This 466-nucleotide RNA sequence from Botryotinia calthae belongs to the Rfam family "RNase MRP". The source organism's lineage runs through Eukaryota, Fungi, sordariomyceta, Helotiales and Botryotinia. Pairs were carried over by alignment from the consensus structure, which is taken from published work.

[Rfam]
RNA sequence: UUCUCGCUCAAAGAAUCGCAUUCGAAGCACACAAACAGAAAUAUCUUCAUCGAUGUUUCAUCUACUCUUAUGCUUUGGGAGAAAGUCCCCGGACACCCUUCUUUCUAAAAGUUAGGAUUGCGGAAACGCGCCGCCAUAGAAGCACUUGCGGCUUCUCUUCUACCAAUUCUUUACCUUCAAUUUCAUCCAUCCUUUUGCCGUUAUUACUGUUGCCACGAGGCUUCUUGAAGAUUGAAUCCGGAGCAUGGGAGACCACAUGGAUGAAGAUAUGAGUCCGAGCUCCCUUGCAAUGUUUCCAAUUGACUUGAAGAAGAGGGGUGAUGGGAGGUAGAAGACAUGUUCCUGAUUGGGGUAGGAGUGUUAAUGGUAGUCGAGGCUUUUUCGUCGAGAUCGAUAGUUAUGCGAUUGUUUUCCUUUGCUGCAAAGCUGGGAAAGUAACUCGAUGGGGCUUAUUCUUGAUGCGAGA
Numbered sequence: 001u002u003c004u005c006g007c008u009c010a011a012a013g014a015a016u017c018g019c020a021u022u023c024g025a026a027g028c029a030c031a032c033a034a035a036c037a038g039a040a041a042u043a044u045c046u047u048c049a050u051c052g053a054u055g056u057u058u059c060a061u062c063u064a065c066u067c068u069u070a071u072g073c074u075u076u077g078g079g080a081g082a083a084a085g086u087c088c089c090c091g092g093a094c095a096c097c098c099u100u101c102u103u104u105c106u107a108a109a110a111g112u113u114a115g116g117a118u119u120g121c122g123g124a125a126a127c128g129c130g131c132c133g134c135c136a137u138a139g140a141a142g143c144a145c146u147u148g149c150g151g152c153u154u155c156u157c158u159u160c161u162a163c164c165a166a167u168u169c170u171u172u173a174c175c176u177u178c179a180a181u182u183u184c185a186u187c188c189a190u191c192c193u194u195u196u197g198c199c200g201u202u203a204u205u206a207c208u209g210u211u212g213c214c215a216c217g218a219g220g221c222u223u224c225u226u227g228a229a230g231a232u233u234g235a236a237u238c239c240g241g242a243g244c245a246u247g248g249g250a251g252a253c254c255a256c257a258u259g260g261a262u263g264a265a266g267a268u269a270u271g272a273g274u275c276c277g278a279g280c281u282c283c284c285u286u287g288c289a290a291u292g293u294u295u296c297c298a299a300u301u302g303a304c305u306u307g308a309a310g311a312a313g314a315g316g317g318g319u320g321a322u323g324g325g326a327g328g329u330a331g332a333a334g335a336c337a338u339g340u341u342c343c344u345g346a347u348u349g350g351g352g353u354a355g356g357a358g359u360g361u362u363a364a365u366g367g368u369a370g371u372c373g374a375g376g377c378u379u380u381u382u383c384g385u386c387g388a389g390a391u392c393g394a395u396a397g398u399u400a401u402g403c404g405a406u407u408g409u410u411u412u413c414c415u416u417u418g419c420u421g422c423a424a425a426g427c428u429g430g431g432a433a434a435g436u437a438a439c440u441c442g443a444u445g446g447g448g449c450u451u452a453u454u455c456u457u458g459a460u461g462c463g464a465g466a
Base pairs, nucleotide, nucleotide: 002466003465004464005463006462007461008459009458010457011456014407015406016405017404018403019402022079023077024076025075026074027073028072038059039058040057041056042055043054044053083451084450085449087448088447089446090445119130120129121128122127277379278378279377285375286374288373290371291370296367297366298365303361304360306358342352343351344350409435410434411433412432413431414430